[Rfam]
RNA sequence: GUUGGGAAGAUGAAGAAAAGGGCAUCUAAGAGCAUUGGGCAUGGGAAAAUAGAGGAAAGCGUGAACUAUGAUUUCCCGCCAGAAUAGGGAGUCAAAUUCUUUUUUUUCCCCAGUGCCUCCCAUGCCUAUUGUUCUUAGGUGUUCCUUCCUCUUCCUAUGAACU
Number, nucleotide and partner (000 for none) at each position: 001g000002u000003u000004g000005g000006g000007a000008a000009g154010a153011u000012g151013a150014a000015g148016a147017a146018a000019a000020g144021g143022g142023c000024a000025u139026c138027u137028a136029a135030g134031a133032g132033c131034a130035u000036u128037g127038g126039g125040c124041a123042u122043g121044g120045g119046a118047a000048a000049a114050u113051a000052g111053a000054g109055g108056a107057a106058a105059g104060c000061g000062u000063g000064a000065a000066c000067u000068a000069u000070g000071a000072u000073u000074u000075c000076c000077c000078g000079c000080c000081a000082g000083a000084a000085u000086a000087g000088g000089g000090a000091g000092u000093c000094a000095a000096a000097u000098u000099c000100u000101u000102u000103u000104u059105u058106u057107u056108c055109c054110c000111c052112a000113g050114u049115g000116c000117c000118u046119c045120c044121c043122a042123u041124g040125c039126c038127u037128a036129u000130u034131g033132u032133u031134c030135u029136u028137a027138g026139g025140u000141g000142u022143u021144c020145c000146u017147u016148c015149c000150u013151c012152u000153u010154c009155c000156u000157a000158u000159g000160a000161a000162c000163u000